[Rfam]
RNA: Plastid-psbM 3UTR RNA
RNA sequence: GAUUCGAGAGUAUGGUAAGUAAGAAAUUCAUUUCUUACUUACCAUACUCUCUAUUAGUGUUAUAGUAGCGUAUCAAAUUGUUUCU
Numbered sequence: 001g002a003u004u005c006g007a008g009a010g011u012a013u014g015g016u017a018a019g020u021a022a023g024a025a026a027u028u029c030a031u032u033u034c035u036u037a038c039u040u041a042c043c044a045u046a047c048u049c050u051c052u053a054u055u056a057g058u059g060u061u062a063u064a065g066u067a068g069c070g071u072a073u074c075a076a077a078u079u080g081u082u083u084c085u
Base pairs, nucleotide, nucleotide: 006051007050008049009048010047011046012045013044014043015042016041017040019038020037021036022035023034024033025032026031